The record is an 86-nucleotide RNA, which matches "GA-cis RNA" in Rfam.
The family's consensus secondary structure is taken from published work.
[Rfam]
RNA sequence: GAGCGGAGGGCACUUAUGAACGAAGUUCAUAAUUAGGAUGUGCCCGACAAUCUGCCGACGAGCAAAGCGAGGGGGCAAUACCCGUG
Numbered sequence: 001g002a003g004c005g006g007a008g009g010g011c012a013c014u015u016a017u018g019a020a021c022g023a024a025g026u027u028c029a030u031a032a033u034u035a036g037g038a039u040g041u042g043c044c045c046g047a048c049a050a051u052c053u054g055c056c057g058a059c060g061a062g063c064a065a066a067g068c069g070a071g072g073g074g075g076c077a078a079u080a081c082c083c084g085u086g
Stems, first nucleotide, its partner, number of pairs: 008045006015031006054076003059071001062068002